A member of the RNA family "SAM (S-adenosyl methionine) riboswitch aptamer" from Rothia mucilaginosa, 113 nucleotides long.
Nucleotides: 113
Stems, first nucleotide, its partner, number of pairs: 001078004009038001011037006021030002039065003044061003048056002081102003085098005
Number, partner (000 for none) and nucleotide at each position: 001078g002077g003076u004075c005000a006000a007000g008000a009038g010000c011037g012036c013035c014034a015033g016032c017000g018000a019000u020000a021030a022029g023000c024000c025000c026000c027000a028000g029022c030021u031000a032016g033015c034014u035013g036012g037011c038009c039065g040064g041063c042000a043000a044061c045060c046059c047000u048056c049055c050000u051000c052000c053000g054000c055049g056048g057000u058000g059046g060045g061044g062000u063041g064040c065039c066000c067000u068000g069000g070000g071000u072000g073000a074000a075004g076003a077002c078001c079000a080000g081102g082101c083100g084000g085098c086097a087096c088095g089094c090000a091000a092000a093000a094089g095088c096087g097086u098085g099000a100083c101082g102081c103000a104000a105000g106000c107000g108000c109000g110000g111000g112000a113000c

Lineage of the source: Bacteria > Actinomycetes > Micrococcaceae > Rothia > Rothia mucilaginosa.